[Rfam]
RNA sequence: GAGCACUUGAUACUAACCGAGCCAUCUGUAUCCCAGGUCUUGUGCAGGUCUGAGGUACACCUUGUGAUUGCUGGGUCUGAAAAGUGCAACAUUAAAACAAGCCAUGAAGUGUUUAAGCUCAGUGUAUAAAGGAUAACACUGGGUUAUAACUCAGAGGCACAGAA
Numbered sequence: 001g002a003g004c005a006c007u008u009g010a011u012a013c014u015a016a017c018c019g020a021g022c023c024a025u026c027u028g029u030a031u032c033c034c035a036g037g038u039c040u041u042g043u044g045c046a047g048g049u050c051u052g053a054g055g056u057a058c059a060c061c062u063u064g065u066g067a068u069u070g071c072u073g074g075g076u077c078u079g080a081a082a083a084g085u086g087c088a089a090c091a092u093u094a095a096a097a098c099a100a101g102c103c104a105u106g107a108a109g110u111g112u113u114u115a116a117g118c119u120c121a122g123u124g125u126a127u128a129a130a131g132g133a134u135a136a137c138a139c140u141g142g143g144u145u146a147u148a149a150c151u152c153a154g155a156g157g158c159a160c161a162g163a164a
Stems, first nucleotide, its partner, number of pairs: 003087006016076003020072003024068003027059006033052001035051006101158003122137002127132001139154006
This 164-nucleotide RNA sequence from Charadrius vociferus belongs to the Rfam family "Small Cajal body specific RNA 1". Rfam describes the family as follows. scaRNAs are a specific class of small nuclear RNAs which localise to the Cajal bodies and guide the modification of RNA polymerase II transcribed spliceosomal RNAs U1, U2, U4, U5 and U12. ACA35 belong to the H/ACA box class of guide RNAs as it has the predicted hairpin-hinge-hairpin-tail structure, conserved H/ACA-box motifs and is found associated with GAR1. It is predicted to guide pseudouridylation of the U2 spliceosomal snRNA at residue U89. Rfam classes the family as a small Cajal body RNA. Rfam 15.1 lists 715 matches to the family in 617 species.